[Rfam]
RNA sequence: AACUCCCAGAAUUCCUGAGCUAACAUGACUGGAGGAGGAAUUCUGGGAGUUGAAGUCCACAAGUCUUAAAGCAUUAUAUUGAGUGAAGUAGUUAAAACAGUUUAUGUCCAGCAUG
Numbered sequence: 001a002a003c004u005c006c007c008a009g010a011a012u013u014c015c016u017g018a019g020c021u022a023a024c025a026u027g028a029c030u031g032g033a034g035g036a037g038g039a040a041u042u043c044u045g046g047g048a049g050u051u052g053a054a055g056u057c058c059a060c061a062a063g064u065c066u067u068a069a070a071g072c073a074u075u076a077u078a079u080u081g082a083g084u085g086a087a088g089u090a091g092u093u094a095a096a097a098c099a100g101u102u103u104a105u106g107u108c109c110a111g112c113a114u115g
Stems, first nucleotide, its partner, number of pairs: 002050010013039004020035002026110002030106002
Dot-bracket structure: .((((((((((.((((...((....[[..[[..)))))).))))))))))......................................................]]..]].....
Record summary:
Shown here is a 115-nucleotide sequence from Notechis scutatus, a member of the family "Pseudoknot of the regulatory region of the repBA gene". It is annotated as a cis-regulatory element. The source organism's lineage runs through Eukaryota, Bilateria, Craniata, Euteleostomi and Notechis. Rfam links the family to the GO term translation. The literature on the family includes a 1999 paper in J Bacteriol by Athanasopoulos et al., "Analysis of elements involved in pseudoknot-dependent expression and regulation of the repA gene of an IncL/M plasmid".